[Rfam]
RNA sequence: GCUGGAGAAAUGCGGAUUAUAAUUGAUGAAAGCGAAGCCGCGGCUUUGAUCGAUGGUGUGAAACAGCGGGUUCCAAGUGAAGAAGGCAAGGAUGUAGCCCGGCAUUGUAUUGGCCACGAACAUCUUGCCCGACGCGAUCAUGUUGGCGCGGCUG
Numbered sequence: 001g002c003u004g005g006a007g008a009a010a011u012g013c014g015g016a017u018u019a020u021a022a023u024u025g026a027u028g029a030a031a032g033c034g035a036a037g038c039c040g041c042g043g044c045u046u047u048g049a050u051c052g053a054u055g056g057u058g059u060g061a062a063a064c065a066g067c068g069g070g071u072u073c074c075a076a077g078u079g080a081a082g083a084a085g086g087c088a089a090g091g092a093u094g095u096a097g098c099c100c101g102g103c104a105u106u107g108u109a110u111u112g113g114c115c116a117c118g119a120a121c122a123u124c125u126u127g128c129c130c131g132a133c134g135c136g137a138u139c140a141u142g143u144u145g146g147c148g149c150g151g152c153u154g
Base pairs, nucleotide, nucleotide: 003034004033013025014024015023037057038056039055040054041052042051043050064154065153066152067151068149071081072080073079086147087146089144090143092141093140094139098134100131101130102129103127104126107123108122110119111118112117
The family of this 154-nucleotide RNA sequence from Pacificitalea manganoxidans is "Ruegeria cis2 sRNA". For this family Rfam cites "Experimental Identification of Small Non-Coding RNAs in the Model Marine Bacterium Ruegeria pomeroyi DSS-3" (Rivers et al., Front Microbiol, 2016).